[Rfam]
RNA: tRNA
Organism: Mycoplasma capricolum
RNA sequence: GCUGACUUAGCUCAGUUGGUAGAGCAAUUGACUAGUAAUCAAUAGGUCGAAGGUUCAAAUCCUUUAGUCAGCA
Numbered sequence: 001g002c003u004g005a006c007u008u009a010g011c012u013c014a015g016u017u018g019g020u021a022g023a024g025c026a027a028u029u030g031a032c033u034a035g036u037a038a039u040c041a042a043u044a045g046g047u048c049g050a051a052g053g054u055u056c057a058a059a060u061c062c063u064u065u066a067g068u069c070a071g072c073a
Stems, first nucleotide, its partner, number of pairs: 001072007010025004027043005049065005